[Rfam]
RNA sequence: GGGUGUUGUUAGCCGUGUGGUGCGGUGAAGGCAGGUUUUUGCGCUGGUCGGGCCGCCGCG
Numbered sequence: 001g002g003g004u005g006u007u008g009u010u011a012g013c014c015g016u017g018u019g020g021u022g023c024g025g026u027g028a029a030g031g032c033a034g035g036u037u038u039u040u041g042c043g044c045u046g047g048u049c050g051g052g053c054c055g056c057c058g059c060g
Base pairs, nucleotide, nucleotide: 005032006031007030009028010027011026042060043059044058046057047056048055
RNA: nhaA-I RNA
Organism: Xanthobacter tagetidis